The family of this 49-nucleotide RNA is "DUF2693-FD RNA". DUF2693-FD RNA is a non-coding RNA (ncRNA) recognised in Bacteroides by a bioinformatic analisis by Zasha Weinberg. The sequence is in the family's curated seed alignment.

[Rfam]
RNA sequence: UUCCCGUGGUCGGAUUGAACGGCUUCCGGUAGCGAGGACCGGACGGGAG
Number, nucleotide and partner (000 for none) at each position: 001u049002u048003c047004c046005c045006g044007u043008g000009g000010u000011c021012g020013g000014a000015u000016u000017g033018a000019a000020c012021g011022g000023c036024u000025u000026c042027c041028g040029g039030u038031a000032g000033c017034g000035a000036g023037g000038a030039c029040c028041g027042g026043a007044c006045g005046g004047g003048a002049g001